[Rfam]
RNA sequence: UCAGGGCUUGGAUUGUGAUCUCGUAUAUUUAUGAGAUCAUUAUUCAAGCUCUCUAAAU
Numbered sequence: 001u002c003a004g005g006g007c008u009u010g011g012a013u014u015g016u017g018a019u020c021u022c023g024u025a026u027a028u029u030u031a032u033g034a035g036a037u038c039a040u041u042a043u044u045c046a047a048g049c050u051c052u053c054u055a056a057a058u
Base pairs, nucleotide, nucleotide: 001055003052005050006049007048008047009046010045011044012043013042015040016039017038018037019036020035021034022033023032024031025030